[Rfam]
RNA sequence: GAAAUAUAAGAAUCUGACUCUUAAUUUUUAACUAAAAAAACUAAGAACCGGCUAUUAAAUAAGAGUUUUAAGAGACAGUUCUUAGUUUUUUAGUUAAAAUUUAAGAGAUAGAUUCUUAUAUUUC
Numbered sequence: 001g002a003a004a005u006a007u008a009a010g011a012a013u014c015u016g017a018c019u020c021u022u023a024a025u026u027u028u029u030a031a032c033u034a035a036a037a038a039a040a041c042u043a044a045g046a047a048c049c050g051g052c053u054a055u056u057a058a059a060u061a062a063g064a065g066u067u068u069u070a071a072g073a074g075a076c077a078g079u080u081c082u083u084a085g086u087u088u089u090u091u092a093g094u095u096a097a098a099a100u101u102u103a104a105g106a107g108a109u110a111g112a113u114u115c116u117u118a119u120a121u122u123u124c
Stems, first nucleotide, its partner, number of pairs: 001124016018107007026099014041085007
The family of this 124-nucleotide sequence from Brassica oleracea is "MIR9563 microRNA precursor family". Gene Ontology terms of the family: miRNA-mediated post-transcriptional gene silencing and RISC complex. The match comes from Rfam's covariance-model search (108 bits). Taxonomically the source falls in Brassica oleracea (Eukaryota, Viridiplantae, Brassicales, Brassiceae).